A member of the RNA family "Makes More Granules Regulator RNA (mmgR)" from Sphingobium algorifonticola, 84 nucleotides long. The family's RNA type in Rfam is small RNA. Rfam 15.1 lists 1,791 matches to the family in 918 species. SuhB later renamed mmgR (makes more granules regulator) was a putative non-coding RNA found multiple times in the Agrobacterium tumefaciens genome and related alpha-proteobacteria. Other non-coding RNAs uncovered in the same analysis include: speF, ybhL, metA, and serC.Several studies inSinorhizobium meliloti showed that suhB element is indeed a non-coding RNA:firstly it was detected on Northern blot and called Sm8RNA, secondly in an RNAseq study referred to as SmelC689.The mutant phenotype's (strain lacking the small RNA) cytoplasm contains higher content of polyhydroxybutyrate (PBH)storage granules than wild type strain. The sRNA is required to limit the PBH intracellular accumulation when the nitrogen-fixing Sinorhizobium meliloti is under condition of surplus carbon in relation to nitrogen. It has been renamed to mmgR. Further study confirmed that mmgR fine-tunes the regulation of PBH storage.Northern blot confirmed the expression of the sRNA in other rhizobia species. Clan: suhB sRNA clan.
RNA sequence: UAUGGAUGUCUCCCUUGCGGGAGACGUCUCCUCCCUGAACCUAGGCCACCCCGUGUUUACACGGGGUGGUUUUUUAUGUGCCGC
Numbered sequence: 001u002a003u004g005g006a007u008g009u010c011u012c013c014c015u016u017g018c019g020g021g022a023g024a025c026g027u028c029u030c031c032u033c034c035c036u037g038a039a040c041c042u043a044g045g046c047c048a049c050c051c052c053g054u055g056u057u058u059a060c061a062c063g064g065g066g067u068g069g070u071u072u073u074u075u076a077u078g079u080g081c082c083g084c
Stems, first nucleotide, its partner, number of pairs: 008025007046069009